[Rfam]
RNA sequence: AACUUUUUAAUAGCGCCAGAACCUAUUAGGUUGACGAGGAUUAGUUGUUAUCGAAAAUUCGGCGGAUGCGACUACGGAUAAGUAUAUUCGUUAAAUGUGUUACAAAGAGUAAAAUCAAUAUUACAACAAAAAACACAUUACAUACAUUU
Numbered sequence: 001a002a003c004u005u006u007u008u009a010a011u012a013g014c015g016c017c018a019g020a021a022c023c024u025a026u027u028a029g030g031u032u033g034a035c036g037a038g039g040a041u042u043a044g045u046u047g048u049u050a051u052c053g054a055a056a057a058u059u060c061g062g063c064g065g066a067u068g069c070g071a072c073u074a075c076g077g078a079u080a081a082g083u084a085u086a087u088u089c090g091u092u093a094a095a096u097g098u099g100u101u102a103c104a105a106a107g108a109g110u111a112a113a114a115u116c117a118a119u120a121u122u123a124c125a126a127c128a129a130a131a132a133a134c135a136c137a138u139u140a141c142a143u144a145c146a147u148u149u
Stems, first nucleotide, its partner, number of pairs: 020032005042074005051062004075090006094139007109124004114119001